[Rfam]
The record is a 98-nucleotide sequence from Channa argus, which matches "Z30 small nucleolar RNA" in Rfam. Taxonomically the source falls in Channa (Eukaryota, Ctenosquamata, Euacanthomorphacea, Channoidei).
Nucleotides: 098
Stems, first nucleotide, its partner, number of pairs: 003096002038056003
Number, partner (000 for none) and nucleotide at each position: 001000c002000u003096g004095c005000a006000g007000u008000g009000a010000u011000g012000a013000u014000u015000a016000a017000a018000g019000a020000u021000g022000u023000g024000a025000g026000u027000g028000a029000c030000u031000u032000g033000g034000u035000a036000u037000a038056g039055c040054u041000u042000g043000g044000u045000c046000u047000c048000u049000g050000g051000g052000u053000c054040a055039g056038c057000u058000g059000u060000g061000a062000c063000u064000g065000g066000g067000a068000a069000a070000u071000g072000a073000a074000c075000u076000c077000a078000g079000u080000u081000a082000a083000u084000c085000u086000u087000c088000u089000c090000u091000c092000u093000g094000a095004g096003c097000a098000g

A search with the family's covariance model found it, with a score of 70 bits.